[Rfam]
The family of this 88-nucleotide RNA from Nicotiana tabacum is "small nucleolar RNA snoR114".
Gene Ontology terms of the family: RNA processing and nucleolus.
The family's RNA type in Rfam is C/D-box small nucleolar RNA.
The literature on the family includes a 2009 paper in Nucleic Acids Res by Chen and Wu, "Mining small RNA sequencing data: a new approach to identify small nucleolar RNAs in Arabidopsis".
RNA sequence: GAGCAGUGAAGUUUACUUGUACAAUUUGUGAACGAUGGGUCGUCACGCGCAUCUGAUCUAAUAUGAUAAGAAUUGUGCAUCCGAGCUC
Dot-bracket structure: ((((................................................................................))))